Source information
Rfam assigns this 305-nucleotide RNA from Geodia barretti to the family "Nuclear RNase P". The source organism's lineage runs through Eukaryota, Opisthokonta, Porifera, Demospongiae and Geodia. It scores 149 bits against the family's covariance model. From the family's description: Ribonuclease P (RNase P) is a ubiquitous endoribonuclease, found in archaea, bacteria and eukarya as well as chloroplasts and mitochondria. Its best characterised activity is the generation of mature 5'-ends of tRNAs by cleaving the 5'-leader elements of precursor-tRNAs.
RNA sequence: GUGGUGUGACGCUCGCUGCUAGGGGCAACACGAGGGGUUCUCCCCAACAGAAAACGCCCUUGGGAAGGUCUGAGACGGAGGCCACGCCCACCCCAGCUGGGUGUCCCGGUAACAGGGAGGGGGGUAUCAGAAAACAGUUGUCCCUGGAACAGCGCUUGCAGCAAGACCACGAUCUCAUCCGGGGUCCUGGAUGCGCGCAGUUCCCCAGGUUGAAAGACCCCCUGGCCAGCCACUGGAGUCCAAUGAGUGAGGUGACUCUCCUCUGAAGGAGAGGCAUAACCCAAUUCAGACUACUCUCAGACCAC
Numbered sequence: 001g002u003g004g005u006g007u008g009a010c011g012c013u014c015g016c017u018g019c020u021a022g023g024g025g026c027a028a029c030a031c032g033a034g035g036g037g038u039u040c041u042c043c044c045c046a047a048c049a050g051a052a053a054a055c056g057c058c059c060u061u062g063g064g065a066a067g068g069u070c071u072g073a074g075a076c077g078g079a080g081g082c083c084a085c086g087c088c089c090a091c092c093c094c095a096g097c098u099g100g101g102u103g104u105c106c107c108g109g110u111a112a113c114a115g116g117g118a119g120g121g122g123g124g125u126a127u128c129a130g131a132a133a134a135c136a137g138u139u140g141u142c143c144c145u146g147g148a149a150c151a152g153c154g155c156u157u158g159c160a161g162c163a164a165g166a167c168c169a170c171g172a173u174c175u176c177a178u179c180c181g182g183g184g185u186c187c188u189g190g191a192u193g194c195g196c197g198c199a200g201u202u203c204c205c206c207a208g209g210u211u212g213a214a215a216g217a218c219c220c221c222c223u224g225g226c227c228a229g230c231c232a233c234u235g236g237a238g239u240c241c242a243a244u245g246a247g248u249g250a251g252g253u254g255a256c257u258c259u260c261c262u263c264u265g266a267a268g269g270a271g272a273g274g275c276a277u278a279a280c281c282c283a284a285u286u287c288a289g290a291c292u293a294c295u296c297u298c299a300g301a302c303c304a305c
Base pairs, nucleotide, nucleotide: 001305002304003303004302007299008298009297012251013250014249015248016247017246021061022060023059024058025057035045036044037043070289071288072287073286074285080227081226082225083224089103090102091101092100093099104118105117106116107115109113119223120222121221122220123219124218125217139209141207252277253276254275256273257272258271259270260269261268